[Rfam]
A member of the RNA family "SAM-I/IV (S-adenosyl methionine) riboswitch aptamer" from Phenylobacterium parvum, 98 nucleotides long.
Rfam 15.1 lists 567 matches to the family in 508 species.
A search with the family's covariance model found it, with a score of 51 bits.
RNA sequence: GUCCGGCGUCAAGAAGGGCAUCGGGCCCUGCCAACCGGCCUCUCCGGCAACGGUGGCGAAACGACGCGGCGCCUGCGGGCGCAAACAAGGAGACCUGA
Number, nucleotide and partner (000 for none) at each position: 001g000002u000003c000004c000005g000006g067007c066008g065009u064010c063011a000012a000013g000014a000015a029016g028017g027018g026019c025020a000021u000022c000023g000024g000025g019026c018027c017028c016029u015030g057031c056032c055033a000034a000035c053036c052037g051038g048039c047040c046041u000042c000043u093044c092045c000046g040047g039048c038049a000050a000051c037052g036053g035054u000055g032056g031057c030058g000059a000060a000061a000062c000063g010064a009065c008066g007067c006068g000069g082070c081071g080072c079073c000074u000075g000076c000077g000078g000079g072080c071081g070082c069083a000084a000085a000086c000087a000088a000089g000090g000091a000092g044093a043094c000095c000096u000097g000098a000